A member of the RNA family "Archaeal signal recognition particle RNA" from Candidatus Acidianus copahuensis, 307 nucleotides long.
RNA sequence: GGGUCGGGUAGGGUGGGGAGAUUCGCCAUCUCCUAUUCCCGUAUGGCGUAAAGCGGGCACCAGUAACCCUUACUCUACAGUUAACAGGUAACGUAAGUCCAGGUCAAACGAUGAAGAUCGCCCAACAGGGUUAGCGUCUGCGGACCUCUACUCCGGAGGGAGUUGAGGGACCGCACUAACCGAGGGAAUCGGUCAGGUCCGGAAGGGAGCAGCCGUACUCGGGCGCUAGCGCUUGGUGGUCUCCGGUCGGAGGUAGAUCUGGGUUAAGCUUGCGUUAUCUGUUGCUGUGGAGUAAGGGAUCCGACCC
Dot-bracket structure: (((((((((..(((((((((((.....)))))))...(((((..........))))))))).....(((((((((((((.(.(..((((((((((((((((((((.(.(......(((((.(((.(((((((((((..(((((.((((.(((((....))))).))))..)))))....((((.(....((((....(((....)))....))))..))))).))))))).)))).)))....)))))...).).)))))))).....)))))))))))).).).))))))))))))))))))))))
Rfam links the family to the GO terms signal recognition particle, plasma membrane targeting and SRP-dependent cotranslational protein targeting to membrane, signal sequence recognition. The family's consensus secondary structure is taken from published work. Lineage of the source: Archaea > Thermoproteota > Thermoprotei > Sulfolobales > Acidianus. The family is grouped with related families in Rfam's "SRP clan".